RNA: RAGATH-32 RNA
RNA sequence: GUGGCUGGACGUACAGUCGGGAAACCCUUCAUGGAUUUUCUACCAACCGGUAGAACAAAUGUUUCUUAGCAUUUGCAGUCA
Numbered sequence: 001g002u003g004g005c006u007g008g009a010c011g012u013a014c015a016g017u018c019g020g021g022a023a024a025c026c027c028u029u030c031a032u033g034g035a036u037u038u039u040c041u042a043c044c045a046a047c048c049g050g051u052a053g054a055a056c057a058a059a060u061g062u063u064u065c066u067u068a069g070c071a072u073u074u075g076c077a078g079u080c081a
Stems, first nucleotide, its partner, number of pairs: 038055007057074006